[Rfam]
RNA sequence: UGUGGAGAAUAAACCAAUAAAAGCCUAUGAACCUUGUCAGAUCCGGAAGGAAGCAGCAAUAAGUAGAUACUUUUGUGUGGAAUUAUUCUCCAUAGAG
Numbered sequence: 001u002g003u004g005g006a007g008a009a010u011a012a013a014c015c016a017a018u019a020a021a022a023g024c025c026u027a028u029g030a031a032c033c034u035u036g037u038c039a040g041a042u043c044c045g046g047a048a049g050g051a052a053g054c055a056g057c058a059a060u061a062a063g064u065a066g067a068u069a070c071u072u073u074u075g076u077g078u079g080g081a082a083u084u085a086u087u088c089u090c091c092a093u094a095g096a097g
Stems, first nucleotide, its partner, number of pairs: 004091009015077001017076006023068001025066004034059004042051003